[Rfam]
RNA sequence: GGUUUAUACCCAGUUACUCAAGGUAAUUGCGUGCUCUGACCAUUUUUCGGAAUGUGUUAGUGACAAUUUUUGGAUAGCUCGACCGGGGUUCUCCGGAUGAGCGAAA
Numbered sequence: 001g002g003u004u005u006a007u008a009c010c011c012a013g014u015u016a017c018u019c020a021a022g023g024u025a026a027u028u029g030c031g032u033g034c035u036c037u038g039a040c041c042a043u044u045u046u047u048c049g050g051a052a053u054g055u056g057u058u059a060g061u062g063a064c065a066a067u068u069u070u071u072g073g074a075u076a077g078c079u080c081g082a083c084c085g086g087g088g089u090u091c092u093c094c095g096g097a098u099g100a101g102c103g104a105a106a
Stems, first nucleotide, its partner, number of pairs: 008035001010031001013028001015025003037059004041054005079104003084099002087094002
RNA: SL2 RNA
Organism: Caenorhabditis auriculariae